Annotation:
The record is a 180-nucleotide sequence from Flintibacter hominis, which matches "Lysine riboswitch aptamer" in Rfam. The family has 47 seed sequences and 3,224 matches in Rfam 15.1.
RNA sequence: CUGCAAGAUAGAGGUGCGGCUACAUCAGUAGACAUGGCCAGGGAGCCGGUUCCCGCUGAUCCAUGUUCAAAGGGGACGCCGCCGAAGAGCUGCUCUUCCGGUCGAGAGUUUGCUCUGGUCGUCUGGUUAACAGCCAGCCGACUGUCAUCAGGGUCAGGCUGAUGGAGAGCUGUCUGCUUU
Numbered sequence: 001c002u003g004c005a006a007g008a009u010a011g012a013g014g015u016g017c018g019g020c021u022a023c024a025u026c027a028g029u030a031g032a033c034a035u036g037g038c039c040a041g042g043g044a045g046c047c048g049g050u051u052c053c054c055g056c057u058g059a060u061c062c063a064u065g066u067u068c069a070a071a072g073g074g075g076a077c078g079c080c081g082c083c084g085a086a087g088a089g090c091u092g093c094u095c096u097u098c099c100g101g102u103c104g105a106g107a108g109u110u111u112g113c114u115c116u117g118g119u120c121g122u123c124u125g126g127u128u129a130a131c132a133g134c135c136a137g138c139c140g141a142c143u144g145u146c147a148u149c150a151g152g153g154u155c156a157g158g159c160u161g162a163u164g165g166a167g168a169g170c171u172g173u174c175u176g177c178u179u180u
Base pairs, nucleotide, nucleotide: 006175007174008173009172010171011170016082017081018080019079020078021076023074031067032066033065034064035063036062037061086116087115088114089113090112092110093108094107095106096105097104117143118142119141120140121139123137124136125135126134127133145165146164147163148162149161150160151159